[Rfam]
RNA sequence: GGAUGUGAGGGCGAUCUGGCUGCGACAUCUGUCACCCCAUUGAUCGCCAGGGUUGAUUCGGCUGAUCUGGCUGGCUAGGCGGGUGUCCCCUUCCUCCCUCACCGCUCCAUGUGCGUCCCUCCCGAAGCUGCGCGCUCGGUCGAAGAGGACGACCUUCCCCGAUAGAGGAGGACCGGUCUUCUGUCAAGGGUAUACGAGUAGCUGCGCUCCCCUGCUAGAACCUCCAAACAAGCUCUCAAGAAUCCACUGAAUAUAAUGUAAAUUACAUUUUAAACAUCAAUUAAAUGACUUAAACAUUUAUGAAAAUCUGGUUACCAAC
Numbered sequence: 001g002g003a004u005g006u007g008a009g010g011g012c013g014a015u016c017u018g019g020c021u022g023c024g025a026c027a028u029c030u031g032u033c034a035c036c037c038c039a040u041u042g043a044u045c046g047c048c049a050g051g052g053u054u055g056a057u058u059c060g061g062c063u064g065a066u067c068u069g070g071c072u073g074g075c076u077a078g079g080c081g082g083g084u085g086u087c088c089c090c091u092u093c094c095u096c097c098c099u100c101a102c103c104g105c106u107c108c109a110u111g112u113g114c115g116u117c118c119c120u121c122c123c124g125a126a127g128c129u130g131c132g133c134g135c136u137c138g139g140u141c142g143a144a145g146a147g148g149a150c151g152a153c154c155u156u157c158c159c160c161g162a163u164a165g166a167g168g169a170g171g172a173c174c175g176g177u178c179u180u181c182u183g184u185c186a187a188g189g190g191u192a193u194a195c196g197a198g199u200a201g202c203u204g205c206g207c208u209c210c211c212c213u214g215c216u217a218g219a220a221c222c223u224c225c226a227a228a229c230a231a232g233c234u235c236u237c238a239a240g241a242a243u244c245c246a247c248u249g250a251a252u253a254u255a256a257u258g259u260a261a262a263u264u265a266c267a268u269u270u271u272a273a274a275c276a277u278c279a280a281u282u283a284a285a286u287g288a289c290u291u292a293a294a295c296a297u298u299u300a301u302g303a304a305a306a307u308c309u310g311g312u313u314a315c316c317a318a319c
Stems, first nucleotide, its partner, number of pairs: 001108003005102007013093002018090002024087010035074002037070003042067004046062003116171002118168004122139004127135002140162003147158003201269001203267001208262001213260003223253001229249002287319001291314003295310001296307004
The family of this 319-nucleotide sequence from Urocitellus parryii is "7SK RNA". The base pairs follow the family's consensus structure, which is taken from published work. A reference for the family is Blencowe (2002), "Transcription: surprising role for an elusive small nuclear RNA", Curr Biol.